[Rfam]
Nucleotides: 121
Base pairs, nucleotide, nucleotide: 011026012025013024014023015022016021028054029053030052036046037044038043083108084107085106086105087104088103089102090101091100092099
Number, partner (000 for none) and nucleotide at each position: 001000a002000c003000a004000u005000g006000a007000a008000a009000g010000a011026a012025g013024a014023a015022g016021u017000u018000u019000c020000c021016g022015c023014u024013u025012c026011u027000c028054g029053c030052c031000u032000u033000g034000u035000u036046g037044a038043c039000a040000u041000u042000a043038g044037u045000g046036u047000u048000u049000u050000c051000a052030g053029g054028c055000u056000a057000a058000c059000a060000a061000a062000c063000u064000a065000u066000u067000u068000a069000a070000u071000u072000a073000a074000g075000u076000c077000u078000g079000u080000u081000u082000g083108c084107g085106g086105g087104u088103a089102u090101u091100u092099c093000u094000g095000a096000g097000a098000u099092g100091a101090a102089a103088u104087a105086c106085c107084c108083g109000u110000u111000u112000u113000u114000u115000c116000a117000u118000g119000u120000u121000u

Source information:
The family of this 121-nucleotide RNA sequence from Brochothrix thermosphacta is "Ribosomal protein L20 leader". This family is a putative r-protein leader autoregulatory structure found in B. subtilis and other low-GC Gram-positive bacteria. It is located in the 5' untranslated regions of mRNAs encoding initiation factor 3 followed by ribosomal proteins L35 and L20 (infC-rpmI-rplT). For this family Rfam cites "Diverse mechanisms for regulating ribosomal protein synthesis in Escherichia coli" (Zengel and Lindahl, Prog Nucleic Acid Res Mol Biol, 1994). Rfam classes the family as a cis-regulatory leader.